[Rfam]
RNA: Small nucleolar RNA SNORA25
Organism: Cebus imitator
RNA sequence: AGGUCAUUUCAAAGCGGCUAUGAAACCAAGAGCUCUUAACACUGUGACCAAAGAUGCAAGUUCUCUACAGGGUGCCAUGGCACUCGAUGGCGCUAUGUGUUCCUGGGGAGAUAUAAGA
Numbered sequence: 001a002g003g004u005c006a007u008u009u010c011a012a013a014g015c016g017g018c019u020a021u022g023a024a025a026c027c028a029a030g031a032g033c034u035c036u037u038a039a040c041a042c043u044g045u046g047a048c049c050a051a052a053g054a055u056g057c058a059a060g061u062u063c064u065c066u067a068c069a070g071g072g073u074g075c076c077a078u079g080g081c082a083c084u085c086g087a088u089g090g091c092g093c094u095a096u097g098u099g100u101u102c103c104u105g106g107g108g109a110g111a112u113a114u115a116a117g118a
Stems, first nucleotide, its partner, number of pairs: 002049006014037001016027002062111005069104004077096005083090002